RNA sequence: AUGAGCAGAAGAGGCGCAGUCUUCAGGCAGUUAUUUCAUCAGGCCGGAACCAUUGAAAUAAUCAGGGGAAGACUGCCGAGACGGCUCAAUUUUCCGGAAAUGGCGCUGUCGGCUGCCAGGGCUGAAUCCCUGGGGCUGUCAUCAACGGUAACGGUUUGAUGGAGUGCUUCUGGGUAA
Numbered sequence: 001a002u003g004a005g006c007a008g009a010a011g012a013g014g015c016g017c018a019g020u021c022u023u024c025a026g027g028c029a030g031u032u033a034u035u036u037c038a039u040c041a042g043g044c045c046g047g048a049a050c051c052a053u054u055g056a057a058a059u060a061a062u063c064a065g066g067g068g069a070a071g072a073c074u075g076c077c078g079a080g081a082c083g084g085c086u087c088a089a090u091u092u093u094c095c096g097g098a099a100a101u102g103g104c105g106c107u108g109u110c111g112g113c114u115g116c117c118a119g120g121g122c123u124g125a126a127u128c129c130c131u132g133g134g135g136c137u138g139u140c141a142u143c144a145a146c147g148g149u150a151a152c153g154g155u156u157u158g159a160u161g162g163a164g165u166g167c168u169u170c171u172g173g174g175u176a177a
Stems, first nucleotide, its partner, number of pairs: 006172006016076009032061001035058002080110006087103001089101003111137004116133006139162007

Lysine riboswitch aptamer: a 177-nucleotide RNA sequence from Chelonobacter oris. The match comes from Rfam's covariance-model search (87 bits). Rfam describes the family as follows. Riboswitches are metabolite binding domains within certain messenger RNAs that serve as precision sensors for their corresponding targets. Allosteric rearrangement of mRNA structure is mediated by ligand binding, and this results in modulation of gene expression. This family includes riboswitches that sense lysine in a number of genes involved in lysine metabolism, including lysC. Lineage of the source: Bacteria > Pseudomonadota > Gammaproteobacteria > Pasteurellaceae > Chelonobacter.